[Rfam]
Nucleotides: 145
Stems, first nucleotide, its partner, number of pairs: 004068006015045006080139011094126004
Number, partner (000 for none) and nucleotide at each position: 001000u002000u003000u004068g005067c006066a007065g008064g009063a010000u011000a012000a013000g014000u015045g016044u017043g018042u019041a020040u021000c022000g023000g024000u025000u026000a027000a028000a029000u030000g031000c032000c033000u034000u035000u036000u037000g038000a039000u040020g041019u042018g043017c044016a045015u046000u047000u048000c049000u050000u051000a052000c053000u054000g055000a056000a057000a058000g059000u060000g061000u062000u063009u064008c065007c066006u067005g068004c069000u070000a071000u072000a073000u074000u075000a076000a077000u078000u079000u080139g081138a082137g083136g084135a085134a086133a087132a088131u089130g090129g091000g092000c093000a094126g095125u096124u097123g098000g099000g100000u101000u102000g103000a104000g105000c106000u107000u108000g109000a110000u111000a112000a113000u114000c115000u116000c117000u118000u119000u120000c121000g122000c123097c124096a125095a126094c127000a128000a129090u130089c131088a132087u133086u134085u135084u136083c137082c138081u139080c140000u141000c142000a143000u144000u145000u
A member of the RNA family "small nucleolar RNA snoR135" from Aegilops tauschii, 145 nucleotides long. The family's consensus secondary structure was predicted with RNAalifold. Gene Ontology terms of the family: RNA processing and nucleolus.